[Rfam]
RNA: SAM-III riboswitch aptamer (SMK box)
Organism: Enterococcus alcedinis
RNA sequence: AGGCGUUGCAAGUUCCCGAGAGGAUUCGCUUAAAAAAGCGGAGAUGCCUUGUAACCGAAAAUUAAUCAGGGGGAAUCACAUUG
Numbered sequence: 001a002g003g004c005g006u007u008g009c010a011a012g013u014u015c016c017c018g019a020g021a022g023g024a025u026u027c028g029c030u031u032a033a034a035a036a037a038g039c040g041g042a043g044a045u046g047c048c049u050u051g052u053a054a055c056c057g058a059a060a061a062u063u064a065a066u067c068a069g070g071g072g073g074a075a076u077c078a079c080a081u082u083g
Stems, first nucleotide, its partner, number of pairs: 013075005020050004025042005055070002